Small nucleolar RNA U6-53/MBII-28: a 109-nucleotide RNA sequence from Bos taurus.
For this family Rfam cites "RNomics: an experimental approach that identifies 201 candidates for novel, small, non-messenger RNAs in mouse" (Huttenhofer et al., EMBO J, 2001).
By type it is a C/D-box small nucleolar RNA.
Rfam's curators put it in the seed alignment.
[Rfam]
RNA sequence: CCCCUGUGAUGAGUUGCCAUGCUAAUUCUGAGACACCAGGUAGGGGAUUUUUCCCUGCAUUGGGUGUUACUGAGAUAAAUUCUACUUCUCUUAAAUCAGACUGAGGGGC
Number, nucleotide and partner (000 for none) at each position: 001c108002c107003c106004c105005u000006g000007u000008g000009a000010u000011g000012a000013g000014u000015u000016g000017c000018c000019a000020u000021g000022c000023u000024a000025a000026u000027u000028c000029u000030g000031a000032g000033a000034c000035a000036c000037c000038a000039g000040g000041u057042a056043g055044g054045g053046g000047a000048u000049u000050u000051u000052u000053c045054c044055c043056u042057g041058c000059a000060u000061u000062g000063g000064g000065u000066g000067u000068u000069a000070c000071u000072g000073a000074g000075a000076u000077a000078a000079a000080u000081u000082c000083u000084a000085c000086u000087u000088c000089u000090c000091u000092u000093a000094a000095a000096u000097c000098a000099g000100a000101c000102u000103g000104a000105g004106g003107g002108g001109c000